[Rfam]
RNA: Mason-Pfizer monkey virus packaging signal
Organism: Macaca nemestrina
RNA sequence: UGGCGCCCGAACAGGACCUGGGAAAACUUUUUGAGGGACACUGUGAGGAAGAGAGGACGCCGAGGCAUGGUCGACCGUAACAAAGAUAAAAAGGAAUUAAACUGAUCACCGCGGGACCUUGCCGCGUCAGGGAUUCGAAGGUAAGUGAGGUGUUCCGAAAUGGGACAAGAAUUAAGCCAGCAUCAAAUAUAUGUAGGACAAUUAAAAGAGGCUUUAAAGAUACGAGGAGUAAAGGUUAAAGGUAAUGAUUGUUUAAAUUUUUUGAUUUUUGUAAAAGAUACUUGCCCUU
Numbered sequence: 001u002g003g004c005g006c007c008c009g010a011a012c013a014g015g016a017c018c019u020g021g022g023a024a025a026a027c028u029u030u031u032u033g034a035g036g037g038a039c040a041c042u043g044u045g046a047g048g049a050a051g052a053g054a055g056g057a058c059g060c061c062g063a064g065g066c067a068u069g070g071u072c073g074a075c076c077g078u079a080a081c082a083a084a085g086a087u088a089a090a091a092a093g094g095a096a097u098u099a100a101a102c103u104g105a106u107c108a109c110c111g112c113g114g115g116a117c118c119u120u121g122c123c124g125c126g127u128c129a130g131g132g133a134u135u136c137g138a139a140g141g142u143a144a145g146u147g148a149g150g151u152g153u154u155c156c157g158a159a160a161u162g163g164g165a166c167a168a169g170a171a172u173u174a175a176g177c178c179a180g181c182a183u184c185a186a187a188u189a190u191a192u193g194u195a196g197g198a199c200a201a202u203u204a205a206a207a208g209a210g211g212c213u214u215u216a217a218a219g220a221u222a223c224g225a226g227g228a229g230u231a232a233a234g235g236u237u238a239a240a241g242g243u244a245a246u247g248a249u250u251g252u253u254u255a256a257a258u259u260u261u262u263u264g265a266u267u268u269u270u271g272u273a274a275a276a277g278a279u280a281c282u283u284g285c286c287c288u289u
Stems, first nucleotide, its partner, number of pairs: 006037003013031004042057001044052001096142003105134001106132002110126005150166002153164003173216003176212003223264008233250001235249004274289002277286001279284001